Record summary: The family of this 91-nucleotide sequence from Neisseria gonorrhoeae is "Neisseria metabolic switch regulator b (RcoF1/NgncR163)". For this family Rfam cites "The sibling sRNAs NgncR_162 and NgncR_163 of Neisseria gonorrhoeae participate in the expression control of metabolic, transport and regulatory proteins" (Bauer et al., Microbiology, 2017). NCBI's taxonomy places the organism under Bacteria, Pseudomonadati, Betaproteobacteria, Neisseriaceae, Neisseria gonorrhoeae. The family has 6 seed sequences and 65 matches in Rfam 15.1. Rfam describes the family as follows. Sibling sRNA described and independently named in three publications. Rfam classes the family as a small RNA.
[Rfam]
Nucleotides: 091
Base pairs, nucleotide, nucleotide: 003029004028005027006026007025008024009023010022011021039057040056041055042054043053062085063084064083065082066081067080068079069078070077071076
Number, partner (000 for none) and nucleotide at each position: 001000c002000c003029g004028u005027u006026a007025g008024c009023u010022g011021g012000u013000u014000c015000g016000a017000g018000u019000a020000g021011u022010c023009a024008g025007u026006u027005a028004a029003u030000a031000g032000u033000u034000u035000c036000u037000c038000c039057u040056c041055u042054a043053u044000u045000u046000c047000u048000c049000c050000u051000u052000u053043g054042u055041a056040g057039a058000c059000u060000u061000g062085g063084c064083a065082c066081a067080c068079a069078u070077u071076c072000u073000a074000u075000u076071g077070a078069a079068u080067g081066u082065g083064u084063g085062c086000a087000u088000u089000u090000u091000u